[Rfam]
RNA sequence: AUCUUUGCGCAGUGGCAUUACCGUAGCCAAUGAGGUCUAUCCGAGGCGCGGUUAUUGCUGAUUGAAAACUUUUCCCAAUAUCCCACAAGACGACUUGAAAUACAGUCGGCUUUGCAAUUUUUGGAGGCCUGAAUAAGG
Dot-bracket structure: ...................(((((.(((.....((.....))..)))))))).................................((((.(((((........))))).)).)).............(((.....)))
Numbered sequence: 001a002u003c004u005u006u007g008c009g010c011a012g013u014g015g016c017a018u019u020a021c022c023g024u025a026g027c028c029a030a031u032g033a034g035g036u037c038u039a040u041c042c043g044a045g046g047c048g049c050g051g052u053u054a055u056u057g058c059u060g061a062u063u064g065a066a067a068a069c070u071u072u073u074c075c076c077a078a079u080a081u082c083c084c085a086c087a088a089g090a091c092g093a094c095u096u097g098a099a100a101u102a103c104a105g106u107c108g109g110c111u112u113u114g115c116a117a118u119u120u121u122u123g124g125a126g127g128c129c130u131g132a133a134u135a136a137g138g
Stems, first nucleotide, its partner, number of pairs: 020052005026047003034042002086114002088111002091108005128138003